[Rfam]
RNA sequence: GAAGUCAGCCGGACAGUCGCCGCCCGUUCGCGGGGGAGGAAAGUCCGGGCUCCACAGAGCAGGAUGCCGGCUAACGGCCGGGCGUCGCGAGGCGACGGAAAGUGGAACAGAGAGCAGAACCGCCGAUGGCCGGGCAACCGGCACAGGCAAGGGUGAAAAGGUGGAUUCCUUCGGGAACGGAUCGGGCAACCGGUCCCGGUAAGAGCGCACCGCGGACGUGGCGACACGGACGGCAGGCUAAACCCCAUCCGGAGCAAGACCAAGCAGGGAGCGCCAACGCGGCUCGCGUUGUUCCCGGGUAGGUUGCUGGAGCGUGCGGGUAACCGUACGCCUAGAGGAAUGACUGUCUGGGACGGGCAACCGUCCGACACAGAACCCGGCUUACAGGCUGACUUCGCCA
Number, nucleotide and partner (000 for none) at each position: 001g396002a395003a394004g393005u392006c391007a390008g389009c388010c387011g385012g348013a347014c346015a345016g344017u343018c342019g000020c036021c035022g000023c033024c032025c000026g000027u000028u000029c000030g000031c000032g024033g023034g000035g021036g020037a000038g000039g000040a000041a383042a382043g381044u000045c380046c379047g378048g377049g376050c254051u253052c252053c251054a000055c000056a000057g285058a284059g283060c282061a000062g250063g249064a248065u247066g246067c081068c080069g079070g078071c077072u000073a000074a000075c000076g000077g071078c070079c069080g068081g067082g096083c094084g093085u092086c091087g000088c000089g000090a000091g086092g085093c084094g083095a000096c082097g245098g244099a000100a000101a000102g243103u242104g239105g238106a000107a000108c000109a000110g000111a000112g000113a000114g000115c000116a000117g000118a000119a000120c152121c151122g148123c147124c146125g000126a000127u143128g142129g000130c140131c000132g000133g000134g000135c000136a000137a000138c000139c000140g130141g000142c128143a127144c000145a000146g124147g123148c122149a000150a000151g121152g120153g000154u000155g000156a000157a000158a000159a000160g211161g210162u209163g208164g000165a000166u000167u000168c000169c000170u000171u000172c000173g000174g000175g000176a000177a000178c000179g000180g000181a000182u000183c000184g000185g000186g000187c000188a000189a000190c000191c000192g000193g000194u000195c000196c000197c000198g000199g000200u000201a000202a000203g000204a000205g000206c000207g000208c163209a162210c161211c160212g234213c232214g231215g000216a000217c228218g227219u226220g225221g000222c000223g000224a000225c220226a219227c218228g217229g000230a000231c214232g213233g000234c212235a000236g000237g000238c105239u104240a000241a000242a103243c102244c098245c097246c066247a065248u064249c063250c062251g053252g052253a051254g050255c000256a000257a000258g305259a304260c303261c302262a000263a000264g000265c000266a000267g296268g295269g294270a293271g292272c291273g000274c000275c000276a290277a289278c288279g287280c286281g000282g060283c059284u058285c057286g280287c279288g278289u277290u276291g272292u271293u270294c269295c268296c267297g000298g000299g000300u000301a000302g261303g260304u259305u258306g000307c000308u000309g000310g000311a000312g331313c330314g329315u328316g327317c326318g325319g324320g000321u000322a000323a000324c319325c318326g317327u316328a315329c314330g313331c312332c000333u000334a000335g000336a000337g000338g000339a000340a000341u000342g018343a017344c016345u015346g014347u013348c012349u000350g000351g000352g000353a000354c000355g000356g000357g000358c000359a000360a000361c000362c000363g000364u000365c000366c000367g000368a000369c000370a000371c000372a000373g000374a000375a000376c049377c048378c047379g046380g045381c043382u042383u041384a000385c011386a000387g010388g009389c008390u007391g006392a005393c004394u003395u002396c001397g000398c000399c000400a000